A member of the RNA family "SraG RNA" from Xenorhabdus cabanillasii, 231 nucleotides long. On this family, see Fontaine et al., RNA 2016: "The small RNA SraG participates in PNPase homeostasis". It is annotated as a small RNA. Rfam links the family to the GO terms mRNA binding and sRNA-mediated gene silencing. This RNA was discovered in E. coli during a large scale screen. Evidence was found for specific cleavage of this RNA.
[Rfam]
RNA sequence: CUUCAUUGCUACACCCUCACGACUAAUGACAGCGCUUAAUCCCCUUUGUCUUUCAAGUGCAGCUUUGUCAGCCGCGCUAUAACUUGGCAUCUACCGGGUAUAUCCUUUUAAGUACUCUCAUUAGCCGCGCGAGUCACUGUAGCUGAAGAGGUUCAAAUAUUUCAGAAACGGAAUUUAAGUUUCUUAAAUUCUACUUUCUAGAAGAAAAGGGGCCCCGAUAGGCCCCUUUCC
Numbered sequence: 001c002u003u004c005a006u007u008g009c010u011a012c013a014c015c016c017u018c019a020c021g022a023c024u025a026a027u028g029a030c031a032g033c034g035c036u037u038a039a040u041c042c043c044c045u046u047u048g049u050c051u052u053u054c055a056a057g058u059g060c061a062g063c064u065u066u067g068u069c070a071g072c073c074g075c076g077c078u079a080u081a082a083c084u085u086g087g088c089a090u091c092u093a094c095c096g097g098g099u100a101u102a103u104c105c106u107u108u109u110a111a112g113u114a115c116u117c118u119c120a121u122u123a124g125c126c127g128c129g130c131g132a133g134u135c136a137c138u139g140u141a142g143c144u145g146a147a148g149a150g151g152u153u154c155a156a157a158u159a160u161u162u163c164a165g166a167a168a169c170g171g172a173a174u175u176u177a178a179g180u181u182u183c184u185u186a187a188a189u190u191c192u193a194c195u196u197u198c199u200a201g202a203a204g205a206a207a208a209g210g211g212g213c214c215c216c217g218a219u220a221g222g223c224c225c226c227u228u229u230c231c
Stems, first nucleotide, its partner, number of pairs: 001148004008143001011140003018131001020129002023124007209226006